The record is an 89-nucleotide sequence, which matches "Plastid-rpl20 3UTR RNA" in Rfam. It is annotated as a cis-regulatory element. Plastid rpl20 is a non-coding RNA (ncRNA) recognised in plastids. It was found in the three prime untranslated region (3UTR) of rpl20 gene, it presence in the 3UTR region sugest a role in transcript maduration.
RNA sequence: ACAGAAUUCCCCGGAGAAUGAACUCCGGGAAGAUAGAAUAAAGAAAAUGAAGUAAGAUAAGUAAUAGGAAUGAACGAACAUGUUUCAAU
Number, nucleotide and partner (000 for none) at each position: 001a000002c000003a000004g000005a000006a000007u031008u030009c000010c029011c028012c027013g026014g025015a024016g023017a000018a000019u000020g000021a000022a000023c016024u015025c014026c013027g012028g011029g010030a008031a007032g000033a000034u000035a000036g000037a000038a000039u000040a000041a000042a000043g000044a000045a000046a000047a000048u000049g000050a000051a000052g000053u000054a000055a000056g000057a000058u000059a000060a000061g000062u000063a000064a000065u000066a000067g000068g000069a000070a000071u000072g085073a084074a083075c082076g000077a000078a000079c000080a000081u000082g075083u074084u073085u072086c000087a000088a000089u000